[Rfam]
This 118-nucleotide RNA from Yersinia ruckeri belongs to the Rfam family "Ribosomal S15 leader". Rfam classes the family as a cis-regulatory leader. On this family, see Benard et al., Biochimie 1996: "Pseudoknot and translational control in the expression of the S15 ribosomal protein". The family's consensus secondary structure is taken from published work. A search with the family's covariance model found it, with a score of 106 bits. From the family's description: The E. coli Ribosomal S15 gene 5' UTR can form two alternative structures. One that is a series of three hairpins, The other includes a pseudoknot. This structure causes translational regulation of the S15 protein.

RNA sequence: UUGGGUUGCUGAAUUAGAGAUCGGCGCCUGUCUUAUUUAAUCUAUUAUUUGGAGUUGUAUUAUGUCUCUAAGUGUUGAAGCGAAAGCUAAAAUUGUUGCUGACUUCGGUCGUGGUCCU
Number, nucleotide and partner (000 for none) at each position: 001u000002u000003g000004g000005g000006u000007u026008g025009c024010u023011g022012a021013a000014u000015u000016a000017g000018a000019g000020a000021u012022c011023g010024g009025c008026g007027c000028c000029u000030g000031u000032c000033u000034u000035a000036u000037u000038u000039a000040a000041u000042c000043u000044a000045u000046u000047a000048u072049u071050u070051g069052g068053a067054g066055u000056u000057g000058u000059a000060u000061u000062a000063u000064g000065u000066c054067u053068c052069u051070a050071a049072g048073u000074g000075u000076u000077g000078a000079a000080g000081c000082g000083a000084a000085a000086g000087c000088u000089a000090a000091a000092a000093u000094u000095g000096u000097u000098g000099c000100u000101g000102a000103c000104u000105u000106c000107g000108g000109u000110c000111g000112u000113g000114g000115u000116c000117c000118u000